[Rfam]
RNA sequence: AAAAACAGCCAUCACCGGAGUUGUACCCCAACCCGGAGCGACUUUCCCAUACUCCGAGUUC
Numbered sequence: 001a002a003a004a005a006c007a008g009c010c011a012u013c014a015c016c017g018g019a020g021u022u023g024u025a026c027c028c029c030a031a032c033c034c035g036g037a038g039c040g041a042c043u044u045u046c047c048c049a050u051a052c053u054c055c056g057a058g059u060u061c
Stems, first nucleotide, its partner, number of pairs: 017045008026036002
Plastid-psbN 5UTR RNA: a 61-nucleotide RNA sequence from Mojavia pulchra. By type it is a cis-regulatory element. Plastid psbN is a non-coding RNA (ncRNA) recognised in plastids. The organism belongs to Mojavia pulchra, within Bacteria. The base pairs follow the family's consensus structure, which was predicted with LocARNA.